[Rfam]
RNA sequence: CUCUUGCUGUGAUGAAUUAUGAUAUUAUUCACAUGUCAGACUUCAGAGAUUUUUUAAAAAAAUCUAUGAGAAGAAAAUUCAUAUUUCUGAGCAGAG
Numbered sequence: 001c002u003c004u005u006g007c008u009g010u011g012a013u014g015a016a017u018u019a020u021g022a023u024a025u026u027a028u029u030c031a032c033a034u035g036u037c038a039g040a041c042u043u044c045a046g047a048g049a050u051u052u053u054u055u056a057a058a059a060a061a062a063u064c065u066a067u068g069a070g071a072a073g074a075a076a077a078u079u080c081a082u083a084u085u086u087c088u089g090a091g092c093a094g095a096g
Base pairs, nucleotide, nucleotide: 001096002095004094005093006092007091048064049063050062051061052060053059
Dot-bracket structure: ((.((((........................................((((((.....))))))..........................))))))

The family of this 96-nucleotide RNA from Protea cynaroides is "Small nucleolar RNA R64/Z200 family". Rfam 15.1 lists 748 matches to the family in 228 species. NCBI's taxonomy places the organism under Eukaryota, Streptophytina, Embryophyta, Proteales, Protea. The family's RNA type in Rfam is C/D-box small nucleolar RNA.